[Rfam]
RNA: RAGATH-18 RNA
RNA sequence: CCCCUGGACUAUUAUAUCAAACCAAAGUAGUUUUUAACAAAAUGGGAUAGGUUGAAUGGGGAA
Numbered sequence: 001c002c003c004c005u006g007g008a009c010u011a012u013u014a015u016a017u018c019a020a021a022c023c024a025a026a027g028u029a030g031u032u033u034u035u036a037a038c039a040a041a042a043u044g045g046g047a048u049a050g051g052u053u054g055a056a057u058g059g060g061g062a063a
Stems, first nucleotide, its partner, number of pairs: 001061004009050005022045003030038003